[Rfam]
RNA sequence: AUCGGAGUUCCGUCGAGGUCAAGCGCCUCCGGAAGAGUAUCUUGUGAAUUCAGUGACCCACCGGCGACGGAAAACAGGCGCGGCGAGCCGACGACGGCUGCGCGGCGUUGUCGUCCGGUAUUGAAAAUCCAAUCCGACGCAGGGUUCGCCCCCUUCCGCUGGGAAAAGACAUCCCCUGCGCCGUUUAGCAAGCGGUCACUUUUGCC
Numbered sequence: 001a002u003c004g005g006a007g008u009u010c011c012g013u014c015g016a017g018g019u020c021a022a023g024c025g026c027c028u029c030c031g032g033a034a035g036a037g038u039a040u041c042u043u044g045u046g047a048a049u050u051c052a053g054u055g056a057c058c059c060a061c062c063g064g065c066g067a068c069g070g071a072a073a074a075c076a077g078g079c080g081c082g083g084c085g086a087g088c089c090g091a092c093g094a095c096g097g098c099u100g101c102g103c104g105g106c107g108u109u110g111u112c113g114u115c116c117g118g119u120a121u122u123g124a125a126a127a128u129c130c131a132a133u134c135c136g137a138c139g140c141a142g143g144g145u146u147c148g149c150c151c152c153c154u155u156c157c158g159c160u161g162g163g164a165a166a167a168g169a170c171a172u173c174c175c176c177u178g179c180g181c182c183g184u185u186u187a188g189c190a191a192g193c194g195g196u197c198a199c200u201u202u203u204g205c206c
Base pairs, nucleotide, nucleotide: 001040002039008034009033010032011031012030016028017027052200053199054198055197056196057195058194060119061118062117063116064115065113066112067111079107080106081105083103084102085101086099087098088097135183136182138180139179140178141177142176143175144174148170150168
A member of the RNA family "RT-7 RNA", 206 nucleotides long. It is one of the family's seed sequences. The base pairs follow the family's consensus structure, which is taken from published work. The family's RNA type in Rfam is small RNA.